Pseudomonas rpsL leader: a 126-nucleotide RNA from Ectopseudomonas mendocina.

RNA sequence: UAGCGGGGCUUUGCCUUGACUGGGGGCGUGAGUCUCUUUAGACUCAUGCACCCCUAAAUUUGGCAGGGCGUUUGGCUCUGCCAUCUUUAUUUGUGAGCGUCGAAAGACAACAGUGGAGCUAGUAGA
Numbered sequence: 001u002a003g004c005g006g007g008g009c010u011u012u013g014c015c016u017u018g019a020c021u022g023g024g025g026g027c028g029u030g031a032g033u034c035u036c037u038u039u040a041g042a043c044u045c046a047u048g049c050a051c052c053c054c055u056a057a058a059u060u061u062g063g064c065a066g067g068g069c070g071u072u073u074g075g076c077u078c079u080g081c082c083a084u085c086u087u088u089a090u091u092u093g094u095g096a097g098c099g100u101c102g103a104a105a106g107a108c109a110a111c112a113g114u115g116g117a118g119c120u121a122g123u124a125g126a
Stems, first nucleotide, its partner, number of pairs: 004018006022053003026049006034041002061083009092124002096120003099108003
About this RNA
The base pairs follow the family's consensus structure, which is taken from published work. For this family Rfam cites "Premature terminator analysis sheds light on a hidden world of bacterial transcriptional attenuation" (Naville and Gautheret, Genome Biol, 2010). The family's RNA type in Rfam is cis-regulatory leader. NCBI's taxonomy places the organism under Bacteria, Gammaproteobacteria, Pseudomonadaceae, Ectopseudomonas, Ectopseudomonas mendocina.